A member of the RNA family "Streptomyces-metK RNA" from Streptomyces sp. 150FB, 119 nucleotides long. It is annotated as a small RNA. The match comes from Rfam's covariance-model search (111 bits).
RNA sequence: GCGAGACACUCUGGACCUGCGGCCCGAUACGACCGAUAAACUGGUCAAGGAACGUCGAGGGGCGCAGCCCCCGGCCGGUCCGCCAAUGAUCAGCCAGCAGCCGCUGCAACCUCAGGGAG
Number, nucleotide and partner (000 for none) at each position: 001g000002c000003g000004a000005g000006a000007c000008a000009c000010u000011c000012u000013g000014g000015a000016c000017c000018u000019g000020c000021g000022g000023c000024c000025c000026g000027a000028u000029a000030c000031g000032a000033c000034c000035g000036a000037u000038a000039a000040a000041c000042u000043g000044g000045u000046c000047a000048a000049g081050g080051a079052a000053c077054g076055u000056c000057g075058a000059g000060g072061g071062g070063c000064g000065c000066a000067g000068c000069c000070c062071c061072c060073g000074g000075c057076c054077g053078g000079u051080c050081c049082g000083c000084c000085a000086a000087u000088g000089a000090u000091c000092a000093g000094c000095c106096a105097g104098c103099a000100g000101c000102c000103g098104c097105u096106g095107c000108a000109a000110c000111c000112u000113c000114a000115g000116g000117g000118a000119g000
The base pairs follow the family's consensus structure, which is taken from published work. Taxonomically the source falls in Streptomyces (Bacteria, Bacillati, Actinomycetota, Kitasatosporales).